[Rfam]
RNA sequence: CCGGCCACUCUUUGGGGAGUAGCCUGCUGUUGUCGACAGACAAUAGCGCUCACGUCAACAUACUCGGUACUCCUACCGUGGCGUGCGCACCUUUCGGUUGGCGAGACCAGAGACAUUUCCGCGUUGGGGUUGGGCGCGCGGUGAUGUCUUUGAUCCUGCGCCCGGCCUGAAGA
Dot-bracket structure: .........................((((((((......))))))))((.(((((((.......(((((....)))))))))))).))...(((............................................................................)))
The record is a 173-nucleotide sequence from Oxalobacteraceae bacterium IMCC9480, which matches "Manganese Mn2+ riboswitch aptamer (yybP-ykoY)" in Rfam.
This RNA was originally discovered in E. coli during a large scale screen and was named SraF. The family was later found to exist upstream of related families of protein genes in many bacteria, including the the yybP and ykoK genes in B. subtilis. The specific functions of these proteins are unknown, but this structured RNA element may be involved in their genetic regulation as a riboswitch.
The organism belongs to Oxalobacteraceae, within Bacteria.
It scores 52 bits against the family's covariance model.